[Rfam]
RNA sequence: GCUACGUUGCGGCUCGUCAUCAGGCACUUUGCUUCGUUUCAAACGCAAGCUGCCUUUUGAAGGGCAACACCGUACU
Numbered sequence: 001g002c003u004a005c006g007u008u009g010c011g012g013c014u015c016g017u018c019a020u021c022a023g024g025c026a027c028u029u030u031g032c033u034u035c036g037u038u039u040c041a042a043a044c045g046c047a048a049g050c051u052g053c054c055u056u057u058u059g060a061a062g063g064g065c066a067a068c069a070c071c072g073u074a075c076u
Base pairs, nucleotide, nucleotide: 004073005072006071008069009068012065013064014063015062017060018059019058023054024053028049029048030047031046032045
Shown here is a 76-nucleotide RNA sequence from Habropoda laboriosa, a member of the family "mir-980 microRNA precursor family". The family has 8 seed sequences and 121 matches in Rfam 15.1.